[Rfam]
RNA sequence: ACUUGUUGUACGCUUAAUUUCCGUCGUCUAUCGCCGGAAAGCGGGGGAACCAAUCUUUGGGGCGAAUUGCGGACCGUCUCGGCGGACGCAUAGGGAAACCAUCUGACCCGAGCCCGACAGCUAACCUCGUUUGCAGUGGAUGGGUCAAUU
Numbered sequence: 001a002c003u004u005g006u007u008g009u010a011c012g013c014u015u016a017a018u019u020u021c022c023g024u025c026g027u028c029u030a031u032c033g034c035c036g037g038a039a040a041g042c043g044g045g046g047g048a049a050c051c052a053a054u055c056u057u058u059g060g061g062g063c064g065a066a067u068u069g070c071g072g073a074c075c076g077u078c079u080c081g082g083c084g085g086a087c088g089c090a091u092a093g094g095g096a097a098a099c100c101a102u103c104u105g106a107c108c109c110g111a112g113c114c115c116g117a118c119a120g121c122u123a124a125c126c127u128c129g130u131u132u133g134c135a136g137u138g139g140a141u142g143g144g145u146c147a148a149u150u
Stems, first nucleotide, its partner, number of pairs: 012134002018040006041130006051059002060115003068090004093109003
Dot-bracket structure: ...........((....((((((...........))))))((((((....((.....))(((.....((((...............))))..(((...........)))...))).........))))))..))................
A member of the RNA family "c-di-AMP riboswitch aptamer (ydaO/yuaA leader)" from Cohnella xylanilytica, 150 nucleotides long. Rfam links the family to the GO terms regulation of gene expression and cyclic-di-AMP binding. It scores 73 bits against the family's covariance model. Rfam's curators write: This family represents a conserved RNA structure found upstream of the ydaO and yuaA genes in Bacillus subtilis and related genes in other bacteria.